Shown here is a 61-nucleotide sequence from Subtercola vilae, a member of the family "msiK RNA". Rfam 15.1 lists 1,374 matches to the family in 1,364 species. The family's RNA type in Rfam is cis-regulatory element. The family's consensus secondary structure is taken from published work. Taxonomically the source falls in Subtercola (Bacteria, Bacillati, Micrococcales, Microbacteriaceae).

RNA sequence: GACCCGAAUCCAUCACAACGGAUCGUCCGGCACGUACCUGCCGGUGAAGGAGUAGUAGAGA
Numbered sequence: 001g002a003c004c005c006g007a008a009u010c011c012a013u014c015a016c017a018a019c020g021g022a023u024c025g026u027c028c029g030g031c032a033c034g035u036a037c038c039u040g041c042c043g044g045u046g047a048a049g050g051a052g053u054a055g056u057a058g059a060g061a
Stems, first nucleotide, its partner, number of pairs: 009051003013047003027044006